[Rfam]
RNA: TPP riboswitch aptamer (THI element)
RNA sequence: AUAUGUCGCCAGGGGCGUCCUCAUUGAAGGACUGAGAGCGUCAUAGGCAGACCCUGGAACCUGAACCGGAUUGUACCGGCGUAGGAAGUGAGACAUGGCUUACCU
Number, nucleotide and partner (000 for none) at each position: 001a000002u000003a000004u000005g000006u093007c092008g000009c090010c000011a055012g054013g053014g052015g000016c000017g032018u031019c030020c029021u028022c000023a000024u000025u000026g000027a000028a021029g020030g019031a018032c017033u000034g000035a000036g000037a000038g000039c000040g048041u047042c046043a000044u000045a000046g042047g041048c040049a000050g000051a000052c014053c013054c012055u011056g000057g000058a000059a000060c085061c084062u083063g082064a000065a000066c079067c078068g077069g076070a000071u000072u000073g000074u000075a000076c069077c068078g067079g066080c000081g000082u063083a062084g061085g060086a000087a000088g000089u000090g009091a000092g007093a006094c000095a000096u000097g000098g000099c000100u000101u000102a000103c000104c000105u000